This 53-nucleotide RNA sequence from Usitatibacter rugosus belongs to the Rfam family "chrB-b RNA". It scores 41 bits against the family's covariance model. The base pairs follow the family's consensus structure, which is taken from published work. The organism belongs to Usitatibacter, within Bacteria.
[Rfam]
RNA sequence: CCGGGCAUAACGCAGACGCCCGACACACCCAAGGCCUGUCGCCCAAGUGCUGC
Numbered sequence: 001c002c003g004g005g006c007a008u009a010a011c012g013c014a015g016a017c018g019c020c021c022g023a024c025a026c027a028c029c030c031a032a033g034g035c036c037u038g039u040c041g042c043c044c045a046a047g048u049g050c051u052g053c
Stems, first nucleotide, its partner, number of pairs: 002022005012053004033043003